[Rfam]
RNA sequence: UAUAACUAACGAGGAUGGGUGAGAUUCCCUACCGGUGGUAAAAGUCCACAAAUCCAUUUGGAUUGAUCUGAUGCAAUGCAGAACCGACAGUAAAGUCUGGAAGGGAGUUAGGUUAU
Numbered sequence: 001u002a003u004a005a006c007u008a009a010c011g012a013g014g015a016u017g018g019g020u021g022a023g024a025u026u027c028c029c030u031a032c033c034g035g036u037g038g039u040a041a042a043a044g045u046c047c048a049c050a051a052a053u054c055c056a057u058u059u060g061g062a063u064u065g066a067u068c069u070g071a072u073g074c075a076a077u078g079c080a081g082a083a084c085c086g087a088c089a090g091u092a093a094a095g096u097c098u099g100g101a102a103g104g105g106a107g108u109u110a111g112g113u114u115a116u
Stems, first nucleotide, its partner, number of pairs: 004113001006111005017029003031096002033086002035049004044084002052063003067082004088099003

A member of the RNA family "FMN riboswitch aptamer (RFN element)" from Halanaerobium saccharolyticum, 116 nucleotides long. A search with the family's covariance model found it, with a score of 90 bits.